[Rfam]
This 150-nucleotide RNA sequence from Ailuropoda melanoleuca belongs to the Rfam family "U12 minor spliceosomal RNA".
The source organism's lineage runs through Eukaryota, Opisthokonta, Deuterostomia, Carnivora and Ailuropoda.
Pairs were carried over by alignment from the consensus structure.
By type it is a spliceosomal small nuclear RNA.
The match comes from Rfam's covariance-model search (110 bits).

RNA sequence: AUACCUUAAACUUAGGAAUAAGGAAAAUAAUGAUUCGGGGUGACACAUGAAUGCUCACUGCUAAUGUGAGACGAAUAUUUGAGCUGGUAAAGGUGGCCCCUUAGGUGACCUGCCUACUUUGUGGGAUGCCUGGGAGUCGCGCUCUGCCUG
Numbered sequence: 001a002u003a004c005c006u007u008a009a010a011c012u013u014a015g016g017a018a019u020a021a022g023g024a025a026a027a028u029a030a031u032g033a034u035u036c037g038g039g040g041u042g043a044c045a046c047a048u049g050a051a052u053g054c055u056c057a058c059u060g061c062u063a064a065u066g067u068g069a070g071a072c073g074a075a076u077a078u079u080u081g082a083g084c085u086g087g088u089a090a091a092g093g094u095g096g097c098c099c100c101u102u103a104g105g106u107g108a109c110c111u112g113c114c115u116a117c118u119u120u121g122u123g124g125g126a127u128g129c130c131u132g133g134g135a136g137u138c139g140c141g142c143u144c145u146g147c148c149u150g
Stems, first nucleotide, its partner, number of pairs: 004023005033052005039046001054070005084150001086148003091145003096140002100134002103131005109125005
Dot-bracket structure: ...(((((..........))))).........(((((.(......).))))).(((((.......))))).............(.(((..(((..((..((.(((((.(((((.......))))).))))).))....))..)))))).)